[Rfam]
RNA sequence: CUUAUGGACUUUUCAGACUUAGCAAGCUACGGCUUACUAGCGAAGACUAUUUUACAUAUAGUCAGAACGUAUAGCCCGUCCUGGGACUACCAGGCAAACAUAAAAAAGGACGCUUCCGGUUAGUAGCGAAGGCGAAGGGCGGAAGCG
Dot-bracket structure: ..((.((....((.....((((.((((....)))).))))....))...)).)).........................((((.......))))................((((((((.(.....((....))....).))))))))
RNA: RT-14 RNA